[Rfam]
RNA sequence: GAACGGAGAGUGUCGCCGGCAUAGUCGCCCCCGCUGACGGCUCUUUCCAGGGGGCGAGCCACAAACUCGCUCCCACUGCUUCCUUUCGAUGGAAAACAGCCCCCUUCCGUCGAAAGGCCAAUGGGCGGUGAAGUUUCCCCCAGCUUCACCGCCUAUUCUU
Numbered sequence: 001g002a003a004c005g006g007a008g009a010g011u012g013u014c015g016c017c018g019g020c021a022u023a024g025u026c027g028c029c030c031c032c033g034c035u036g037a038c039g040g041c042u043c044u045u046u047c048c049a050g051g052g053g054g055c056g057a058g059c060c061a062c063a064a065a066c067u068c069g070c071u072c073c074c075a076c077u078g079c080u081u082c083c084u085u086u087c088g089a090u091g092g093a094a095a096a097c098a099g100c101c102c103c104c105u106u107c108c109g110u111c112g113a114a115a116g117g118c119c120a121a122u123g124g125g126c127g128g129u130g131a132a133g134u135u136u137c138c139c140c141c142a143g144c145u146u147c148a149c150c151g152c153c154u155a156u157u158c159u160u
Stems, first nucleotide, its partner, number of pairs: 009044002012041004017036004050074009075122001080120001082117002086113004091108004123154012
RNA: Bradyrhizobiaceae sRNA BjrC80
Organism: Tardiphaga robiniae